Description:
Rfam assigns this 113-nucleotide RNA sequence from Streptomyces roseus to the family "TPP riboswitch aptamer (THI element)". NCBI's taxonomy places the organism under Bacteria, Bacillati, Actinomycetota, Streptomycetaceae, Streptomyces. It scores 58 bits against the family's covariance model. Rfam links the family to the GO term thiamine pyrophosphate binding.

RNA sequence: CGUACCUAUCGCGGGAGUCCGGGCGCACCGGGCUGAGAGGGAGGCUGAGCGGCCUCCGACCGUACGAACCUGAUCCGGGUCAUGCCGGCGAAGGGAGGGGCUGGACGCCCAUG
Number, nucleotide and partner (000 for none) at each position: 001c000002g000003u000004a000005c000006c000007u100008a000009u098010c097011g063012c062013g061014g060015g000016a000017g033018u032019c031020c030021g029022g000023g000024c000025g000026c000027a000028c000029c021030g020031g019032g018033c017034u000035g000036a000037g000038a000039g000040g057041g056042a055043g054044g053045c052046u051047g000048a000049g000050c000051g046052g045053c044054c043055u042056c041057c040058g000059a000060c014061c013062g012063u011064a000065c000066g000067a000068a000069c094070c093071u092072g000073a000074u000075c088076c087077g086078g085079g000080u000081c000082a000083u000084g000085c078086c077087g076088g075089c000090g000091a000092a071093g070094g069095g000096a000097g010098g009099g000100g007101c000102u000103g000104g000105a000106c000107g000108c000109c000110c000111a000112u000113g000